A member of the RNA family "SAM riboswitch aptamer (S box leader)" from Clostridium sp. 7_2_43FAA, 98 nucleotides long.
RNA sequence: AUCUUAUUAAGAGUGGUGGAGGGACUGGCCCUUUGAAACCCAGCAACCUGCUUUCUAGUGUGGUGCUAAAUCCUACAGAUUUUUCUGAAAAAUAAGAG
Numbered sequence: 001a002u003c004u005u006a007u008u009a010a011g012a013g014u015g016g017u018g019g020a021g022g023g024a025c026u027g028g029c030c031c032u033u034u035g036a037a038a039c040c041c042a043g044c045a046a047c048c049u050g051c052u053u054u055c056u057a058g059u060g061u062g063g064u065g066c067u068a069a070a071u072c073c074u075a076c077a078g079a080u081u082u083u084u085c086u087g088a089a090a091a092a093u094a095a096g097a098g
Stems, first nucleotide, its partner, number of pairs: 002097007013041001015040003021031003027073002042067004047063002049060004071090001076087004

Pairs were carried over by alignment from the consensus structure, which is taken from published work. Taxonomically the source falls in Clostridium (Bacteria, Clostridia, Eubacteriales, Clostridiaceae).